TPP riboswitch aptamer (THI element): a 101-nucleotide RNA sequence from Clostridium puniceum. The source organism's lineage runs through Bacteria, Bacillati, Bacillota, Clostridiaceae and Clostridium. Rfam's curators write: Vitamin B(1) in its active form thiamin pyrophosphate (TPP) is an essential coenzyme that is synthesised by coupling of pyrimidine and thiazole moieties in bacteria. The previously detected thiamin-regulatory element, thi box was extended, resulting in a new, highly conserved RNA secondary structure, the THI element, which is widely distributed in eubacteria and also occurs in some archaea. Analysis of operon structures identified a large number of new candidate thiamin-regulated genes, mostly transporters, in various prokaryotic organisms. The THI element is a riboswitch that directly binds to TPP to regulate gene expression through a variety of mechanisms in archaea, bacteria and eukaryotes. through a variety of mechanisms in archaea, bacteria and eukaryotes.
RNA sequence: AUAAAGUGCUAGGGGAGCCAAUAGGCUGAGAUUUGAUAUUCAUAAACCCUUCAAACCUGAUCUAGUUAAUUCUAGCGUAGGGAAUGCAACCUUGUAAAAAU
Numbered sequence: 001a002u003a004a005a006g007u008g009c010u011a012g013g014g015g016a017g018c019c020a021a022u023a024g025g026c027u028g029a030g031a032u033u034u035g036a037u038a039u040u041c042a043u044a045a046a047c048c049c050u051u052c053a054a055a056c057c058u059g060a061u062c063u064a065g066u067u068a069a070u071u072c073u074a075g076c077g078u079a080g081g082g083a084a085u086g087c088a089a090c091c092u093u094g095u096a097a098a099a100a101u
Stems, first nucleotide, its partner, number of pairs: 007088003011050004017026003034042003056081004062075004